The family of this 69-nucleotide RNA sequence from Prolemur simus is "Small nucleolar RNA SNORD2". Rfam 15.1 lists 1,116 matches to the family in 660 species. Pairs were carried over by alignment from the consensus structure, which was predicted with WAR. The source organism's lineage runs through Eukaryota, Tetrapoda, Mammalia, Theria and Prolemur. A search with the family's covariance model found it, with a score of 82 bits.
RNA sequence: GGGUGAAAUGAUGGCAGUCAUCUUUUGGCACUGACCUGAAAUGAAAAGAAUACUCAUUGCUGAUCACUU
Numbered sequence: 001g002g003g004u005g006a007a008a009u010g011a012u013g014g015c016a017g018u019c020a021u022c023u024u025u026u027g028g029c030a031c032u033g034a035c036c037u038g039a040a041a042u043g044a045a046a047a048g049a050a051u052a053c054u055c056a057u058u059g060c061u062g063a064u065c066a067c068u069u
Stems, first nucleotide, its partner, number of pairs: 001069006